[Rfam]
RNA sequence: UUGCGGUGAUGACUUUCUUAGGACACCUUUGGAUUCAACGUGAAAAGAAAUCAGUUUUCUGAGCGAU
Numbered sequence: 001u002u003g004c005g006g007u008g009a010u011g012a013c014u015u016u017c018u019u020a021g022g023a024c025a026c027c028u029u030u031g032g033a034u035u036c037a038a039c040g041u042g043a044a045a046a047g048a049a050a051u052c053a054g055u056u057u058u059c060u061g062a063g064c065g066a067u
Stems, first nucleotide, its partner, number of pairs: 001066004
A member of the RNA family "Small nucleolar RNA SNORD58" from Anser cygnoides, 67 nucleotides long. For this family Rfam cites "Site-specific ribose methylation of preribosomal RNA: a novel function for small nucleolar RNAs" (Kiss-Laszlo et al., Cell, 1996). The family's RNA type in Rfam is C/D-box small nucleolar RNA. It scores 76 bits against the family's covariance model. Gene Ontology terms of the family: RNA processing and nucleolus. The base pairs follow the family's consensus structure, which was predicted with PFOLD.